[Rfam]
RNA sequence: UGGCUGUAGUCAAACUAACAAGGAAGGAAAUCUGGUCGGCCUGCCCGCUUCAAUGGGCAACCCGCUUACCAACCUUCCUACAUGU
Number, nucleotide and partner (000 for none) at each position: 001u000002g000003g000004c000005u000006g000007u000008a000009g000010u000011c000012a000013a000014a000015c000016u000017a000018a000019c000020a000021a079022g078023g077024a076025a075026g074027g073028a000029a000030a000031u000032c000033u000034g066035g065036u064037c000038g062039g061040c000041c000042u000043g058044c057045c056046c055047g000048c000049u000050u000051c000052a000053a000054u000055g046056g045057g044058c043059a000060a000061c039062c038063c000064g036065c035066u034067u000068a000069c000070c000071a000072a000073c027074c026075u025076u024077c023078c022079u021080a000081c000082a000083u000084g000085u000
Shown here is an 85-nucleotide sequence from Triticum aestivum, a member of the family "Small nucleolar RNA snoR109". On this family, see Marker et al., Curr Biol 2002: "Experimental RNomics: identification of 140 candidates for small non-messenger RNAs in the plant Arabidopsis thaliana". Gene Ontology terms of the family: nucleolus and RNA processing. The family's RNA type in Rfam is H/ACA-box small nucleolar RNA. The base pairs follow the family's consensus structure, which was predicted with WAR.